[Rfam]
Rfam assigns this 74-nucleotide sequence from Crocodylus porosus to the family "Mammalian CPEB3 ribozyme". Pairs were carried over by alignment from the consensus structure, which is taken from published work.
RNA sequence: CAAGAGUUCAAGGCCGUAGCAGAAAUGUUUGCAGCAUGGCUGUGUCAGAUUCCGACAAAUCUGAGAAUUCUGCG
Numbered sequence: 001c002a003a004g005a006g007u008u009c010a011a012g013g014c015c016g017u018a019g020c021a022g023a024a025a026u027g028u029u030u031g032c033a034g035c036a037u038g039g040c041u042g043u044g045u046c047a048g049a050u051u052c053c054g055a056c057a058a059a060u061c062u063g064a065g066a067a068u069u070c071u072g073c074g
Stems, first nucleotide, its partner, number of pairs: 013040003019073006025037003046063006